mir-971 microRNA precursor family: a 74-nucleotide RNA from Plutella xylostella. Pairs were carried over by alignment from the consensus structure, which was predicted with RNAalifold. Rfam links the family to the GO terms RISC complex and miRNA-mediated post-transcriptional gene silencing.
[Rfam]
RNA sequence: AUUUCGGUUCACUCUAAGUAUGAACCCCAAGCGUUUUUAAUAAGUUUGGUGUUCUACCUUACAGUGAACGGAGG
Numbered sequence: 001a002u003u004u005c006g007g008u009u010c011a012c013u014c015u016a017a018g019u020a021u022g023a024a025c026c027c028c029a030a031g032c033g034u035u036u037u038u039a040a041u042a043a044g045u046u047u048g049g050u051g052u053u054c055u056a057c058c059u060u061a062c063a064g065u066g067a068a069c070g071g072a073g074g
Stems, first nucleotide, its partner, number of pairs: 007069007015061003025051001027049006
Dot-bracket structure: ......(((((((.(((.......(.((((((...........)))))).).......))).))))))).....